A member of the RNA family "mir-34 microRNA precursor family" from Brenthis ino, 71 nucleotides long. The family is grouped with related families in Rfam's "mir-34 clan". Pairs were carried over by alignment from the consensus structure, which was predicted with RNAalifold. Rfam links the family to the GO terms miRNA-mediated post-transcriptional gene silencing and RISC complex. Rfam 15.1 lists 2,256 matches to the family in 820 species. Rfam describes the family as follows. Human mir-34a was discovered computationally and later experimentally verified. The mature sequence is excised from the 5' arm of the hairpin.

[Rfam]
RNA sequence: GCCGCGUUGGCAGUGUGGUUAGCUGGUUGUUUAGUGAUACCAACAGCCAGUAACGCCACUGCCCCUGCGUC
Dot-bracket structure: ..((((..((.((((..((((..((((((((..........)))))))).))))..)))).))..))))..